[Rfam]
RNA sequence: UCUAGAACUCGAGAUAUGGGGCUGAACACUCAGAUGUCAAGCAGGCUGCGGGGGAUGGUCGGACUUUUUGUUGUUGCUACAAUUUGGACUUAAAAACGGCCUUGUUAAAUCUUGGGCUCCCAUGAAAGUUGUAGGCCUAUGUCUUACCUUUCCAUC
Number, nucleotide and partner (000 for none) at each position: 001u000002c000003u154004a000005g152006a151007a150008c000009u146010c000011g145012a144013g143014a142015u141016a140017u139018g138019g137020g136021g000022c134023u133024g132025a000026a130027c000028a129029c128030u127031c000032a000033g000034a123035u122036g121037u000038c000039a000040a000041g000042c000043a000044g119045g118046c000047u116048g000049c000050g113051g112052g111053g110054g000055a000056u000057g105058g000059u000060c000061g101062g100063a000064c099065u098066u000067u000068u000069u093070g000071u000072u000073g089074u088075u087076g000077c000078u000079a000080c000081a000082a000083u000084u000085u000086g000087g075088a074089c073090u000091u000092a000093a069094a000095a000096a000097c000098g065099g064100c062101c061102u000103u000104g000105u057106u000107a000108a000109a000110u053111c052112u051113u050114g000115g000116g047117c000118u045119c044120c000121c036122a035123u034124g000125a000126a000127a030128g029129u028130u026131g000132u024133a023134g022135g000136c020137c019138u018139a017140u016141g015142u014143c013144u012145u011146a009147c000148c000149u000150u007151u006152c005153c000154a003155u000156c000
Rfam assigns this 156-nucleotide RNA sequence from Populus deltoides to the family "MIR2912 microRNA precursor family".
The family's consensus secondary structure was predicted with RNAalifold.